[Rfam]
RNA sequence: AUACUGCCACUGCCCGAGGUCCGUUCGCAAAAAUCGCUUGGCAGUAGCGGGGGAACCACAUUUCGGGUCCAUCAGGAUCCUUGGGGUUAAGUGUCACGGUCCGGUUAUCGGGCCAGGCACCGAGUGACUCCCACUCGAAUCCGACAGCUCACCUCGCAGGCAUUGGGAGAGGUAAU
Numbered sequence: 001a002u003a004c005u006g007c008c009a010c011u012g013c014c015c016g017a018g019g020u021c022c023g024u025u026c027g028c029a030a031a032a033a034u035c036g037c038u039u040g041g042c043a044g045u046a047g048c049g050g051g052g053g054a055a056c057c058a059c060a061u062u063u064c065g066g067g068u069c070c071a072u073c074a075g076g077a078u079c080c081u082u083g084g085g086g087u088u089a090a091g092u093g094u095c096a097c098g099g100u101c102c103g104g105u106u107a108u109c110g111g112g113c114c115a116g117g118c119a120c121c122g123a124g125u126g127a128c129u130c131c132c133a134c135u136c137g138a139a140u141c142c143g144a145c146a147g148c149u150c151a152c153c154u155c156g157c158a159g160g161c162a163u164u165g166g167g168a169g170a171g172g173u174a175a176u
Stems, first nucleotide, its partner, number of pairs: 002046008047157006057083002084142003092119004122136004
Shown here is a 176-nucleotide sequence from Arthrobacter rhombi, a member of the family "c-di-AMP riboswitch aptamer (ydaO/yuaA leader)". Taxonomically the source falls in Arthrobacter (Bacteria, Bacillati, Actinomycetota, Actinomycetes). Rfam describes the family as follows. This family represents a conserved RNA structure found upstream of the ydaO and yuaA genes in Bacillus subtilis and related genes in other bacteria. Rfam 15.1 lists 7,607 matches to the family in 2,262 species.